Plastid-psbA-1 3UTR RNA: a 116-nucleotide sequence from Ziziphus jujuba. Pairs were carried over by alignment from the consensus structure, which was predicted with LocARNA. The family's RNA type in Rfam is cis-regulatory element. Rfam describes the family as follows. Plastid psbA-1 is a non-coding RNA (ncRNA) present in plastids. It was identified in inverted repeat sequences in the 3 prime untranslate region (3UTR) of photosystem II quinone-binding protein (psbA). Its Rfam clan is "Plastid-psbA 3UTR RNA clan". It scores 90 bits against the family's covariance model.
[Rfam]
RNA sequence: UUGAAGUUCCAUCUACAAACGGAUAAAACUUUGGUAUUAGUGUAUACUGAUUUAUUGAACAUAAAGGAGCAACAAUCAAUUUCUCAUCCUAGUAAGAAGUUUGGUAUUGCUCAUUU
Number, nucleotide and partner (000 for none) at each position: 001u000002u000003g000004a000005a000006g000007u000008u023009c022010c021011a000012u019013c000014u000015a000016c000017a000018a000019a012020c000021g010022g009023a008024u000025a000026a000027a000028a000029c000030u000031u000032u000033g000034g000035u000036a000037u000038u000039a000040g000041u000042g000043u000044a000045u000046a000047c000048u000049g000050a000051u000052u000053u000054a000055u000056u000057g000058a000059a000060c000061a000062u000063a116064a115065a114066g000067g112068a111069g110070c109071a108072a107073c000074a105075a000076u000077c000078a101079a100080u000081u098082u097083c096084u095085c000086a000087u000088c000089c000090u000091a000092g000093u000094a000095a084096g083097a082098a081099g000100u079101u078102u000103g000104g000105u074106a000107u072108u071109g070110c069111u068112c067113a000114u065115u064116u063